A member of the RNA family "Bacterial RNase P class A" from Pelagibaculum spongiae, 357 nucleotides long. Ribonuclease P (RNase P) is a ubiquitous endoribonuclease, found in archaea, bacteria and eukarya as well as chloroplasts and mitochondria. The family's consensus secondary structure is taken from published work.
[Rfam]
RNA sequence: GGAGUUGACCUAGACAAUCGCCGCCUGACUUGCUUGCAUUUCAGGGGGAGGAAAGUCCGGGCUCCAUAGGGUAGAGUGCCAGGUAACGCCUGGGGGGCGUGAGCCUACGGAAAGUGCAACAGAAAAUAAACCGCCUAAGUGCCUAGCACCGGUAAGGUUGAAAUGGUGCGGUAAGAGCGCACCGCGCGGCUGGUAACAGGCGUGGCAUGGUAAACCCCACUCGGAGCAAGACCAAAUAGGGAUCCGCUAGGCGUGACCCGCGCCGGAUCCGGGUAGGUUGCUUGAGGCUUGUGGCGACGCAAGUCCUAGACGAAUGAUUGUCCACGACAAAACCCGGCUUACAGGUCGACUCCACCU
Numbered sequence: 001g002g003a004g005u006u007g008a009c010c011u012a013g014a015c016a017a018u019c020g021c022c023g024c025c026u027g028a029c030u031u032g033c034u035u036g037c038a039u040u041u042c043a044g045g046g047g048g049a050g051g052a053a054a055g056u057c058c059g060g061g062c063u064c065c066a067u068a069g070g071g072u073a074g075a076g077u078g079c080c081a082g083g084u085a086a087c088g089c090c091u092g093g094g095g096g097g098c099g100u101g102a103g104c105c106u107a108c109g110g111a112a113a114g115u116g117c118a119a120c121a122g123a124a125a126a127u128a129a130a131c132c133g134c135c136u137a138a139g140u141g142c143c144u145a146g147c148a149c150c151g152g153u154a155a156g157g158u159u160g161a162a163a164u165g166g167u168g169c170g171g172u173a174a175g176a177g178c179g180c181a182c183c184g185c186g187c188g189g190c191u192g193g194u195a196a197c198a199g200g201c202g203u204g205g206c207a208u209g210g211u212a213a214a215c216c217c218c219a220c221u222c223g224g225a226g227c228a229a230g231a232c233c234a235a236a237u238a239g240g241g242a243u244c245c246g247c248u249a250g251g252c253g254u255g256a257c258c259c260g261c262g263c264c265g266g267a268u269c270c271g272g273g274u275a276g277g278u279u280g281c282u283u284g285a286g287g288c289u290u291g292u293g294g295c296g297a298c299g300c301a302a303g304u305c306c307u308a309g310a311c312g313a314a315u316g317a318u319u320g321u322c323c324a325c326g327a328c329a330a331a332a333c334c335c336g337g338c339u340u341a342c343a344g345g346u347c348g349a350c351u352c353c354a355c356c357u
Stems, first nucleotide, its partner, number of pairs: 001353010013322007021048002024045005053340003057337005062226004069259004074222005079093005094108001095106004109217002114215002116211002131157002133153003165183006184206001185204004190199003230279004240270006250264005286305008